[Rfam]
RNA sequence: CAUGCAGACGAUCACGCUCAUUCUCGUAAGCAGGCGCACACGCGAGGCGGUCUAACGACCGUCCGGCUCCUGCCACGUGUGCGCAUCCCAAGGCCCCUCGAAGGGCCUUUUUUAUUGCCUGAA
Numbered sequence: 001c002a003u004g005c006a007g008a009c010g011a012u013c014a015c016g017c018u019c020a021u022u023c024u025c026g027u028a029a030g031c032a033g034g035c036g037c038a039c040a041c042g043c044g045a046g047g048c049g050g051u052c053u054a055a056c057g058a059c060c061g062u063c064c065g066g067c068u069c070c071u072g073c074c075a076c077g078u079g080u081g082c083g084c085a086u087c088c089c090a091a092g093g094c095c096c097c098u099c100g101a102a103g104g105g106c107c108u109u110u111u112u113u114a115u116u117g118c119c120u121g122a123a
Stems, first nucleotide, its partner, number of pairs: 009026001030118003034084009046063005066073002090109007
Rfam assigns this 123-nucleotide RNA sequence from Aureimonas sp. Leaf324 to the family "Rhizobiales sRNA Atu_C8". The organism belongs to Aureimonas, within Bacteria. For this family Rfam cites "Deep sequencing uncovers numerous small RNAs on all four replicons of the plant pathogen Agrobacterium tumefaciens" (Wilms et al., RNA Biol, 2012). It scores 73 bits against the family's covariance model. The family's RNA type in Rfam is small RNA.